[Rfam]
RNA: Actinobacillus sRNA 08
Organism: Mannheimia varigena
RNA sequence: ACUUUACAGGGUUGCAGAUUAUCUGUAUAAUUUGCGACCUUAACUUGCGAGAGCAAGCUGAUGGUGCUUAGCCUAUCUAAGCCCCGUCUAAGACUGUAGGGGUGAAAACUUAAUAAUCCUACAUAGAUGGUGAACAGACAGAAUUAUCUGCUUCUGUACACCUUAGGCUCAGAAGAUUGCAGCUUAUUACAAGCGGUAAUAUUUUUGGGAUUUUUUGUAAAUUCUGCUUGAAAAGGCAGAGUGUAUCAGGAGCUAAAACCA
Numbered sequence: 001a002c003u004u005u006a007c008a009g010g011g012u013u014g015c016a017g018a019u020u021a022u023c024u025g026u027a028u029a030a031u032u033u034g035c036g037a038c039c040u041u042a043a044c045u046u047g048c049g050a051g052a053g054c055a056a057g058c059u060g061a062u063g064g065u066g067c068u069u070a071g072c073c074u075a076u077c078u079a080a081g082c083c084c085c086g087u088c089u090a091a092g093a094c095u096g097u098a099g100g101g102g103u104g105a106a107a108a109c110u111u112a113a114u115a116a117u118c119c120u121a122c123a124u125a126g127a128u129g130g131u132g133a134a135c136a137g138a139c140a141g142a143a144u145u146a147u148c149u150g151c152u153u154c155u156g157u158a159c160a161c162c163u164u165a166g167g168c169u170c171a172g173a174a175g176a177u178u179g180c181a182g183c184u185u186a187u188u189a190c191a192a193g194c195g196g197u198a199a200u201a202u203u204u205u206u207g208g209g210a211u212u213u214u215u216u217g218u219a220a221a222u223u224c225u226g227c228u229u230g231a232a233a234a235g236g237c238a239g240a241g242u243g244u245a246u247c248a249g250g251a252g253c254u255a256a257a258a259c260c261a
Stems, first nucleotide, its partner, number of pairs: 003257004008041015044057005060088005066082006095123007102109002129162004135156004139150004168209008179197002183193003211252005217246003221242009